A member of the RNA family "terC RNA" from Falsiroseomonas stagni, 74 nucleotides long. A search with the family's covariance model found it, with a score of 52 bits. Pairs were carried over by alignment from the consensus structure, which is taken from published work. The organism belongs to Falsiroseomonas stagni, within Bacteria.

RNA sequence: CCAUCGAUCCGGGCCCCUCUGGCGCGCCCUGCCCGCCGCAAGCGGGACAGGCCGCGCGAUGUCGGAUCACCACC
Numbered sequence: 001c002c003a004u005c006g007a008u009c010c011g012g013g014c015c016c017c018u019c020u021g022g023c024g025c026g027c028c029c030u031g032c033c034c035g036c037c038g039c040a041a042g043c044g045g046g047a048c049a050g051g052c053c054g055c056g057c058g059a060u061g062u063c064g065g066a067u068c069a070c071c072a073c074c
Base pairs, nucleotide, nucleotide: 006068007067008066009065010064011063012062022057023056024055025054026053028051029050030049